[Rfam]
RNA sequence: CCCUCCCGGCAAAGGCGCAGCCCGCCAGCCGGAAGCGAGCCUUGCAUGGGCGACGGCAACGCCGCUCGUGAAGCGUAGGCAGCGGACGCUGAAGCCCUGGGGUAGCCCCGAUAUCAUGUCCCGCUGGAGCCUUCGGAGUGUUGGGACCGGGGGCAGCAUCGACAGGAUCGCAAGUGGCGAGGUCCUGCCGGUCCGGCCGGGGUCUUGGAACA
Dot-bracket structure: .....(((((...((((..[[.)))).)))))..((..((((((((((((((.((....)).))))))))...)).)))).))....................(((((((............(((((((((..(((..........)))..)))....(((.(((((((.......]]..))))))).)))))))))))))))..)......
RNA: Group II catalytic intron D1-D4-6
Organism: Roseicella frigidaeris